[Rfam]
RNA: Fluoride riboswitch aptamer (crcB RNA motif)
RNA sequence: AUAGCAUGAGGCGAUGGGGUUCGCCGUAAACAACGUCUUGGACGCUAAUGACUCCUGCAGGUAU
Numbered sequence: 001a002u003a004g005c006a007u008g009a010g011g012c013g014a015u016g017g018g019g020u021u022c023g024c025c026g027u028a029a030a031c032a033a034c035g036u037c038u039u040g041g042a043c044g045c046u047a048a049u050g051a052c053u054c055c056u057g058c059a060g061g062u063a064u
Base pairs, nucleotide, nucleotide: 010025011024012023013022016055017054018053019052020051021050034044035043036042